[Rfam]
RNA: Small nucleolar RNA SNORD115
RNA sequence: AGAUCAAUGAUGAGAACUCAUAUGGUCUCAAAAAGAGAUCAUGACCUAAAAAUCAUGCUCAAUAGGAUUAUGCUGAGGCCA
Numbered sequence: 001a002g003a004u005c006a007a008u009g010a011u012g013a014g015a016a017c018u019c020a021u022a023u024g025g026u027c028u029c030a031a032a033a034a035g036a037g038a039u040c041a042u043g044a045c046c047u048a049a050a051a052a053u054c055a056u057g058c059u060c061a062a063u064a065g066g067a068u069u070a071u072g073c074u075g076a077g078g079c080c081a
Stems, first nucleotide, its partner, number of pairs: 002080001004078001005075002008072002